[Rfam]
RNA sequence: UGGUAGAUGCACCCUAAUAAUUCACUCCCCUAGAUGGAAACAACCAGCUGGGGGAAUUUUUU
Numbered sequence: 001u002g003g004u005a006g007a008u009g010c011a012c013c014c015u016a017a018u019a020a021u022u023c024a025c026u027c028c029c030c031u032a033g034a035u036g037g038a039a040a041c042a043a044c045c046a047g048c049u050g051g052g053g054g055a056a057u058u059u060u061u062u
Base pairs, nucleotide, nucleotide: 002013003012004011027054028053029052030051031050032049033048035046036045037044
Nitrogen stress-induced RNA 1: a 62-nucleotide RNA from Calothrix sp. C42_A2020_038. A reference for the family is Ionescu et al. (2010), "Heterocyst-specific transcription of NsiR1, a non-coding RNA encoded in a tandem array of direct repeats in cyanobacteria", J Mol Biol. By type it is a small RNA. The match comes from Rfam's covariance-model search (58 bits).